[Rfam]
RNA sequence: UGCUCAGCAACUCCUAUCCCUACCUCCUCGGGUAACCAACCCGGGUGAGAAUUUCGAUCGUGUGCUGACAGGGAAGG
Numbered sequence: 001u002g003c004u005c006a007g008c009a010a011c012u013c014c015u016a017u018c019c020c021u022a023c024c025u026c027c028u029c030g031g032g033u034a035a036c037c038a039a040c041c042c043g044g045g046u047g048a049g050a051a052u053u054u055c056g057a058u059c060g061u062g063u064g065c066u067g068a069c070a071g072g073g074a075a076g077g
Stems, first nucleotide, its partner, number of pairs: 013077003017073003022033003039063002042060003046056002
This 77-nucleotide sequence from Aedes aegypti belongs to the Rfam family "drz-agam-1 ribozyme". The literature on the family includes a 2009 paper in Science by Webb et al., "Widespread occurrence of self-cleaving ribozymes". The source organism's lineage runs through Eukaryota, Metazoa, Altocrustacea, Pterygota and Stegomyia. Gene Ontology term of the family: catalytic activity. Pairs were carried over by alignment from the consensus structure, which is taken from published work.